[Rfam]
RNA sequence: CCCGGUCCCCCGCGUGGCGGCACCUCACCCAACUCCCCCAGGGCUUGACGGCAGCAAGGGUCAGUGAGCUCUGUCGGGUGCGCGGGGGGCUCUUUGC
Numbered sequence: 001c002c003c004g005g006u007c008c009c010c011c012g013c014g015u016g017g018c019g020g021c022a023c024c025u026c027a028c029c030c031a032a033c034u035c036c037c038c039c040a041g042g043g044c045u046u047g048a049c050g051g052c053a054g055c056a057a058g059g060g061u062c063a064g065u066g067a068g069c070u071c072u073g074u075c076g077g078g079u080g081c082g083c084g085g086g087g088g089g090c091u092c093u094u095u096g097c
Base pairs, nucleotide, nucleotide: 004091005090006089007088008087009086010085011084012083013082014081015078018076019075020074021073022072024068025067026066027065028064035060036059037058043052044051045050
Rfam assigns this 97-nucleotide sequence from Microlunatus sagamiharensis to the family "Bacterial small signal recognition particle RNA".
On this family, see Righetti et al., Proc Natl Acad Sci U S A 2016: "Temperature-responsive in vitro RNA structurome of Yersinia pseudotuberculosis".
From the family's description: The signal recognition particle (SRP) is a universally conserved ribonucleoprotein involved in the co-translational targeting of proteins to membranes.
Rfam classes the family as a non-coding RNA gene.
The base pairs follow the family's consensus structure, which is taken from published work.